[Rfam]
RNA sequence: GUCGGACCCGGCUUUCGCCCGGGUGGCUUCUCCGGGCGCCUAUCCCCCGGUCACAA
Numbered sequence: 001g002u003c004g005g006a007c008c009c010g011g012c013u014u015u016c017g018c019c020c021g022g023g024u025g026g027c028u029u030c031u032c033c034g035g036g037c038g039c040c041u042a043u044c045c046c047c048c049g050g051u052c053a054c055a056a
Base pairs, nucleotide, nucleotide: 006024007023008022009021010020011019012017032050033049034048035047036046

The record is a 56-nucleotide RNA sequence from Devosia oryzisoli, which matches "sul1 RNA" in Rfam. Pairs were carried over by alignment from the consensus structure, which is taken from published work. The family's RNA type in Rfam is riboswitch.